RNA sequence: UGAGCAUCAGUGAUGAGCAAUUAUAAUUCGUUAUCCUUGCACUUUGAUUGUUAGUGAAGAAAAUCUGGGGAAUUAUUACUCUGAGAUGCUC
Numbered sequence: 001u002g003a004g005c006a007u008c009a010g011u012g013a014u015g016a017g018c019a020a021u022u023a024u025a026a027u028u029c030g031u032u033a034u035c036c037u038u039g040c041a042c043u044u045u046g047a048u049u050g051u052u053a054g055u056g057a058a059g060a061a062a063a064u065c066u067g068g069g070g071a072a073u074u075a076u077u078a079c080u081c082u083g084a085g086a087u088g089c090u091c
Stems, first nucleotide, its partner, number of pairs: 002091007
Rfam assigns this 91-nucleotide RNA from Trifolium medium to the family "Small nucleolar RNA snoR26". Lineage of the source: Eukaryota > Mesangiospermae > Papilionoideae > Hologalegina > Trifolium. A search with the family's covariance model found it, with a score of 93 bits. A reference for the family is Brown et al. (2001), "Multiple snoRNA gene clusters from Arabidopsis", RNA. The base pairs follow the family's consensus structure, which was predicted with WAR.